[Rfam]
RNA sequence: GCCAUGCCAUUCUCAGGGCUGCGUUACUGUCCAGCGAGCAUGUAGCAAGGGCAAUGCUGGCAAUGCCCACAUCACAUGCCCAUAUCAACUAGAGCUCUGCUUUGCCUUGGUGCAAUUUUUAGAAAA
Numbered sequence: 001g002c003c004a005u006g007c008c009a010u011u012c013u014c015a016g017g018g019c020u021g022c023g024u025u026a027c028u029g030u031c032c033a034g035c036g037a038g039c040a041u042g043u044a045g046c047a048a049g050g051g052c053a054a055u056g057c058u059g060g061c062a063a064u065g066c067c068c069a070c071a072u073c074a075c076a077u078g079c080c081c082a083u084a085u086c087a088a089c090u091a092g093a094g095c096u097c098u099g100c101u102u103u104g105c106c107u108u109g110g111u112g113c114a115a116u117u118u119u120u121a122g123a124a125a126a
Stems, first nucleotide, its partner, number of pairs: 006019003022059002026055001028053005038046002083112005090104006
The family of this 126-nucleotide RNA from Prolemur simus is "U4atac minor spliceosomal RNA". Rfam 15.1 lists 1,648 matches to the family in 818 species. It is annotated as a spliceosomal small nuclear RNA. The source organism's lineage runs through Eukaryota, Eumetazoa, Eutheria, Lemuridae and Prolemur. U4atac is an essential component of the minor U12-type spliceosome complex which is required for removal of the rarer class of eukaryotic introns (AT-AC, U12-type). Clan: U4 clan.